RNA sequence: AUGUAAGAUGAGGUAACUUUGCGCUUAUCAUCGGAUAAAGUCGCAGACCCAUUGUAUCACUAUGUCUGUUUAUAUGCAAUAGAAAUAAAGAACCUGGUAAAGCUGCCAGGUUCUUUUUCGA
Dot-bracket structure: .................................((.(.(...(.................)...)...).).)..........(..(((((((((((........))))))))))))....

Bacillus sRNA ncr1015: a 121-nucleotide sequence from Paenibacillus flagellatus. The family's consensus secondary structure is taken from published work. A search with the family's covariance model found it, with a score of 70 bits. A reference for the family is Irnov et al. (2010), "Identification of regulatory RNAs in Bacillus subtilis", Nucleic Acids Res. The family's RNA type in Rfam is small RNA.